[Rfam]
RNA sequence: CACCCAGCGUGGCAAGACGCGGGGGCGUUGGCCGGGUUGGAACAGGGACGGCCAUGCGCACGCCGGGGUAGCGAGGGGCCGGAUGUCGGGGGACAUCCGGCCCCGUUUUU
Numbered sequence: 001c002a003c004c005c006a007g008c009g010u011g012g013c014a015a016g017a018c019g020c021g022g023g024g025g026c027g028u029u030g031g032c033c034g035g036g037u038u039g040g041a042a043c044a045g046g047g048a049c050g051g052c053c054a055u056g057c058g059c060a061c062g063c064c065g066g067g068g069u070a071g072c073g074a075g076g077g078g079c080c081g082g083a084u085g086u087c088g089g090g091g092g093a094c095a096u097c098c099g100g101c102c103c104c105g106u107u108u109u110u
Stems, first nucleotide, its partner, number of pairs: 003067003007063005012057002017028003030053005037046002075104013

A member of the RNA family "Xanthomonadaceae sRNA asX1" from Luteimonas cucumeris, 110 nucleotides long. The base pairs follow the family's consensus structure, which was predicted with CMfinder. Rfam classes the family as a small RNA. The literature on the family includes a 2011 paper in Nucleic Acids Res by Schmidtke et al., "Genome-wide transcriptome analysis of the plant pathogen Xanthomonas identifies sRNAs with putative virulence functions". A search with the family's covariance model found it, with a score of 83 bits.